[Rfam]
Rfam assigns this 213-nucleotide RNA from Miscanthus lutarioriparius to the family "MIR6217 microRNA precursor family". Lineage of the source: Eukaryota > Euphyllophyta > Mesangiospermae > Andropogonodae > Miscanthus.

RNA sequence: AAAAUAACUUAUUAUAUAGCCAUUUUAAGUUACGAUAAUGACUAUAUUAAUUUAUGAGAUUAUAGUAACCUCUUGCUAAGUGGUUUACUAUAAUGUUAUGAUAAAUAUCUCCACAUGUUAUAGUAACGCAACUAUCGUAAAUAUGUAUUGACAUUAUUAUAAAUUAGUAUAUAAAAUUAUCGUAAAUGAAGGUGGCUAUGAAUAACUUAUUUU
Numbered sequence: 001a002a003a004a005u006a007a008c009u010u011a012u013u014a015u016a017u018a019g020c021c022a023u024u025u026u027a028a029g030u031u032a033c034g035a036u037a038a039u040g041a042c043u044a045u046a047u048u049a050a051u052u053u054a055u056g057a058g059a060u061u062a063u064a065g066u067a068a069c070c071u072c073u074u075g076c077u078a079a080g081u082g083g084u085u086u087a088c089u090a091u092a093a094u095g096u097u098a099u100g101a102u103a104a105a106u107a108u109c110u111c112c113a114c115a116u117g118u119u120a121u122a123g124u125a126a127c128g129c130a131a132c133u134a135u136c137g138u139a140a141a142u143a144u145g146u147a148u149u150g151a152c153a154u155u156a157u158u159a160u161a162a163a164u165u166a167g168u169a170u171a172u173a174a175a176a177u178u179a180u181c182g183u184a185a186a187u188g189a190a191g192g193u194g195g196c197u198a199u200g201a202a203u204a205a206c207u208u209a210u211u212u213u
Stems, first nucleotide, its partner, number of pairs: 001213007009205005015200012030185010043171013058158003062154002067148001073140004080135006086125011100110001